A member of the RNA family "glmS glucosamine-6-phosphate activated ribozyme aptamer" from Desulfosporosinus metallidurans, 162 nucleotides long.
This entry contains a glucosamine-6-phosphate activated ribozyme that is found in the mRNA for GlmS. GlmS is an enzyme that uses fructose-6-phosphate and glutamine to generate glucosamine-6-phosphate. The ribozyme catalyses self cleavage of the glmS mRNA that is thought to regulate GlmS activity.
[Rfam]
RNA sequence: AAGAUAAUUUAAGCGCCAGGACCUCAAUCUAAAGUAGACUGAGGUUGACGAGGAAGAGGGUUAUCGAACGAUUCGGCGGAUCCCUCUCGGUGGCUUGUCACCGUAAAGCUUACUUAAAACCGAAGAGCAAUUUUCGGGACAAAAGGAAAGCUGACAAGACAA
Dot-bracket structure: ...................(((((((..(.......)..)))))))........(((((....((((.....))))......)))))(((((......)))))...(((((.(......(((((((....)))))))........).)))))..........